[Rfam]
RNA sequence: CUGCCUGGACGACCCGGCAGGCUCCUCUUCCCAACGGGACGGCCCGC
Numbered sequence: 001c002u003g004c005c006u007g008g009a010c011g012a013c014c015c016g017g018c019a020g021g022c023u024c025c026u027c028u029u030c031c032c033a034a035c036g037g038g039a040c041g042g043c044c045c046g047c
Stems, first nucleotide, its partner, number of pairs: 001020005007014002035046004
A member of the RNA family "Guanidine-II riboswitch aptamer (mini-ykkC)" from Thiomonas sp. X19, 47 nucleotides long. Rfam 15.1 lists 1,589 matches to the family in 1,229 species. NCBI's taxonomy places the organism under Bacteria, Pseudomonadati, Pseudomonadota, Burkholderiales, Thiomonas.